This 119-nucleotide RNA sequence from Rhizobium sp. Kim5 belongs to the Rfam family "Rhizobiales sRNA Atu_C8". The family's RNA type in Rfam is small RNA. It is one of the family's seed sequences.
[Rfam]
RNA sequence: GGAAACGAUGACGAUUGUCGUAGCGGUGAUAUCGCGCAUGGGCAGGAGGGAAUAGCCCUCCGGAAACCGCCGCCCAUGCGCCGAAACAGGUCCCUGACGGGGCCUUUUUUUAUGCCCCG
Numbered sequence: 001g002g003a004a005a006c007g008a009u010g011a012c013g014a015u016u017g018u019c020g021u022a023g024c025g026g027u028g029a030u031a032u033c034g035c036g037c038a039u040g041g042g043c044a045g046g047a048g049g050g051a052a053u054a055g056c057c058c059u060c061c062g063g064a065a066a067c068c069g070c071c072g073c074c075c076a077u078g079c080g081c082c083g084a085a086a087c088a089g090g091u092c093c094c095u096g097a098c099g100g101g102g103c104c105u106u107u108u109u110u111u112a113u114g115c116c117c118c119g
Stems, first nucleotide, its partner, number of pairs: 009026001032114001034081009045061006063070001088105007